[Rfam]
RNA sequence: CGAAUGCUGAUUGGGCUUGCUGUCGUCGACAGCAGACCACCCCAGGGAACCUGAGUCUCAUGGUUCCGGCGCGCAAGCGUUGACUCACCCAAGGUCGCCAAGCACUCGGCAGCGCGACCGCAUCGCCUCAGGCGAUGGAGUGC
Dot-bracket structure: ...........(((.(..((((((...)))))).).)))......((((((.[..[.....))))))(((((....)))))]..]............................(((....(((((((...)))))))...)))

About this RNA
Shown here is a 143-nucleotide RNA sequence from Pseudomonas taeanensis, a member of the family "radC RNA". Lineage of the source: Bacteria > Pseudomonadota > Pseudomonadales > Pseudomonadaceae > Pseudomonas taeanensis. Rfam classes the family as a cis-regulatory element. It scores 78 bits against the family's covariance model.